The record is a 105-nucleotide RNA sequence from Roseburia hominis, which matches "TPP riboswitch aptamer (THI element)" in Rfam. For this family Rfam cites "Crystal structures of the thi-box riboswitch bound to thiamine pyrophosphate analogs reveal adaptive RNA-small molecule recognition" (Edwards and Ferre-D'Amare, Structure, 2006). Lineage of the source: Bacteria > Bacillota > Clostridia > Roseburia > Roseburia hominis. Pairs were carried over by alignment from the consensus structure, which is taken from published work.
RNA sequence: AUAAUGAAAACGGGGUGCUCGCACGGCGGGCUGAGAGUAAGCGGAUGCUUUAACCCAGAACCUGAUUUGGAUAAUGCCAACGUAGGGAGAUAAUAAGUCACAAGA
Numbered sequence: 001a002u003a004a005u006g007a008a009a010a011c012g013g014g015g016u017g018c019u020c021g022c023a024c025g026g027c028g029g030g031c032u033g034a035g036a037g038u039a040a041g042c043g044g045a046u047g048c049u050u051u052a053a054c055c056c057a058g059a060a061c062c063u064g065a066u067u068u069g070g071a072u073a074a075u076g077c078c079a080a081c082g083u084a085g086g087g088a089g090a091u092a093a094u095a096a097g098u099c100a101c102a103a104g105a
Stems, first nucleotide, its partner, number of pairs: 008091001012056003017031005039050004061086004067080004